[Rfam]
Notes
This 105-nucleotide sequence from Carboxydothermus hydrogenoformans belongs to the Rfam family "SAM riboswitch aptamer (S box leader)". Lineage of the source: Bacteria > Bacillati > Bacillota > Carboxydothermus > Carboxydothermus hydrogenoformans.

RNA sequence: CUCUUAUCAAGAGUGGCGGAGGGACUGGCCCAAUGAAGCCCGGCAACCGGCCAUAUUUUUGGCAAUGGUGCCAAUUCCUGCGGAUUAAAUUCCGGGAGAUAAGAG
Numbered sequence: 001c002u003c004u005u006a007u008c009a010a011g012a013g014u015g016g017c018g019g020a021g022g023g024a025c026u027g028g029c030c031c032a033a034u035g036a037a038g039c040c041c042g043g044c045a046a047c048c049g050g051c052c053a054u055a056u057u058u059u060u061g062g063c064a065a066u067g068g069u070g071c072c073a074a075u076u077c078c079u080g081c082g083g084a085u086u087a088a089a090u091u092c093c094g095g096g097a098g099a100u101a102a103g104a105g
Stems, first nucleotide, its partner, number of pairs: 001105008013041001015040003021031003025080001027078002042072004047068002050063003076097001081094004